[Rfam]
RNA sequence: CAAGCAGAUCGCCUUAUCGCAAUGACUAUAAAUGUCGUUGAGGAAAGUCCGAACACCAUAGUGCAACAUAUUGGCUAACAGCCAUCAGUCGUGAGGCUAGGAAAAGUGCAACAGAAAGUAUGUACAGGUAAUGCUGUAGUGAAAUCAGGUAAACUCUAUGUGGUGCAAUGUCAUGUAAACCAAUGUUUGAGCGUUGCACGCGCGAUGUUGGAGGGUAGGCAGCUAAAGUUUGCUGGUAACAGUAAAUGUAGAUAAAUGAUAAGGCAGUGACACGGUAACGUCGUCAUUGGACAGAAUUCGGCUUAUAGAUUUGCUUUAGUA
Numbered sequence: 001c002a003a004g005c006a007g008a009u010c011g012c013c014u015u016a017u018c019g020c021a022a023u024g025a026c027u028a029u030a031a032a033u034g035u036c037g038u039u040g041a042g043g044a045a046a047g048u049c050c051g052a053a054c055a056c057c058a059u060a061g062u063g064c065a066a067c068a069u070a071u072u073g074g075c076u077a078a079c080a081g082c083c084a085u086c087a088g089u090c091g092u093g094a095g096g097c098u099a100g101g102a103a104a105a106g107u108g109c110a111a112c113a114g115a116a117a118g119u120a121u122g123u124a125c126a127g128g129u130a131a132u133g134c135u136g137u138a139g140u141g142a143a144a145u146c147a148g149g150u151a152a153a154c155u156c157u158a159u160g161u162g163g164u165g166c167a168a169u170g171u172c173a174u175g176u177a178a179a180c181c182a183a184u185g186u187u188u189g190a191g192c193g194u195u196g197c198a199c200g201c202g203c204g205a206u207g208u209u210g211g212a213g214g215g216u217a218g219g220c221a222g223c224u225a226a227a228g229u230u231u232g233c234u235g236g237u238a239a240c241a242g243u244a245a246a247u248g249u250a251g252a253u254a255a256a257u258g259a260u261a262a263g264g265c266a267g268u269g270a271c272a273c274g275g276u277a278a279c280g281u282c283g284u285c286a287u288u289g290g291a292c293a294g295a296a297u298u299c300g301g302c303u304u305a306u307a308g309a310u311u312u313g314c315u316u317u318a319g320u321a
Base pairs, nucleotide, nucleotide: 002316003315004314005313006312007311008310009309010308011306012264013263014262015261016260017259018258020040021039022038023037024036025035026034045304046303047302049301050300051299052298053297054165055164056163057162061199062198063197064196066161067160068159069158070157072084073083074082075081086100087098088097089096090095101156102155106154107153108150109149123138124137125136126135127134169221170220171219172218180211181210182209183208184207191203192202193201194200228247229246230245231244232243233242234241235240
Dot-bracket structure: .(((((((((((((((((.(((((((.......)))))))....[[[.[[[[[((((...[[[[.(((((.((((.....)))).(((((....)))).)((...((((.............(((((......)))))..........))..)))))))))))))...((((.......(((((......((((.]]]]))))...)))))......))))......((((((((....))))))))..........)))))))................................]]]]]]]].).))))))))).....

Source information
This 321-nucleotide RNA from Pontimicrobium aquaticum belongs to the Rfam family "Bacterial RNase P class A". The family's RNA type in Rfam is ribozyme. It scores 197 bits against the family's covariance model.